A member of the RNA family "Small nucleolar RNA snoR27" from Thalictrum thalictroides, 84 nucleotides long.
A reference for the family is Brown et al. (2001), "Multiple snoRNA gene clusters from Arabidopsis", RNA.
Pairs were carried over by alignment from the consensus structure, which was predicted with WAR.
Its Rfam clan is "snR68 clan".

[Rfam]
RNA sequence: UUUGGAUCGAUGAUGUUGCAUAUAUUACUGCGUUAUCUUUCUGAUAAUUCUUUGAGGAAAGCUUUAAGUACGCUGAGAUCCGUA
Numbered sequence: 001u002u003u004g005g006a007u008c009g010a011u012g013a014u015g016u017u018g019c020a021u022a023u024a025u026u027a028c029u030g031c032g033u034u035a036u037c038u039u040u041c042u043g044a045u046a047a048u049u050c051u052u053u054g055a056g057g058a059a060a061g062c063u064u065u066a067a068g069u070a071c072g073c074u075g076a077g078a079u080c081c082g083u084a
Stems, first nucleotide, its partner, number of pairs: 001084001003082005
Dot-bracket structure: (.(((((......................................................................))))).)